[Rfam]
The record is a 123-nucleotide sequence, which matches "Hepatitis C virus J7880 RNA" in Rfam.
RNA sequence: GUGAAGCUGCAGGCCUCUAAGGUGAAAGUCGAUACGCUGUCCGUCGAGGAAGCGUGUCGUCUGACCCCGCCCCAUUCCGCGCGAUCCAAGUUCGGAUACGGGGCUAAGGAGGUCCGUAGCUUG
Numbered sequence: 001g002u003g004a005a006g007c008u009g010c011a012g013g014c015c016u017c018u019a020a021g022g023u024g025a026a027a028g029u030c031g032a033u034a035c036g037c038u039g040u041c042c043g044u045c046g047a048g049g050a051a052g053c054g055u056g057u058c059g060u061c062u063g064a065c066c067c068c069g070c071c072c073c074a075u076u077c078c079g080c081g082c083g084a085u086c087c088a089a090g091u092u093c094g095g096a097u098a099c100g101g102g103g104c105u106a107a108g109g110a111g112g113u114c115c116g117u118a119g120c121u122u123g
Base pairs, nucleotide, nucleotide: 006120007119008118009117010116012114013113014112015111016110017109018108022065023064025062028057029056037048038047068103070101071100074097075096076095077094079091080090
Dot-bracket structure: .....(((((.(((((((...((.(..((.......((........)).......))....).))..(.((..((((.((.........))..))))..)).)....))))))).)))))...